The family of this 115-nucleotide RNA sequence from Pannonibacter tanglangensis is "EcpR1". Gene Ontology terms of the family: mRNA binding, negative regulation of cell cycle and regulation of translation in response to stress. Perviously named SmelC291, SmrC10, or Sra33. According to its overproduction phenotype it was renamed Elongated Cell Phenotype RNA1. Induced by stress,EcpR1 negatively regulates cell cycle master regulatory genes dnaA and gcrA at post-transcriptional level by base pairing between its strongly conserved GC-rich loop and the target mRNAs. It's regulation is hfq-independent but requires RNase E to regulate dnaA. The literature on the family includes a 2015 paper in PLoS Genet by Robledo et al., "A stress-induced small RNA modulates alpha-rhizobial cell cycle progression".
[Rfam]
RNA sequence: AAACCCUGCGGAAUGCCUGGGUCCGCCGCAUCUCCUGGGUCCGUGGGGAAAAGGCCGGUGAAAUGCUGCGCGAUGAGUGGCCUCCUCGUGACCCCAGCAUUUCGCCGGCCGCCUU
Numbered sequence: 001a002a003a004c005c006c007u008g009c010g011g012a013a014u015g016c017c018u019g020g021g022u023c024c025g026c027c028g029c030a031u032c033u034c035c036u037g038g039g040u041c042c043g044u045g046g047g048g049a050a051a052a053g054g055c056c057g058g059u060g061a062a063a064u065g066c067u068g069c070g071c072g073a074u075g076a077g078u079g080g081c082c083u084c085c086u087c088g089u090g091a092c093c094c095c096a097g098c099a100u101u102u103c104g105c106c107g108g109c110c111g112c113c114u115u
Stems, first nucleotide, its partner, number of pairs: 004048007016039006053110011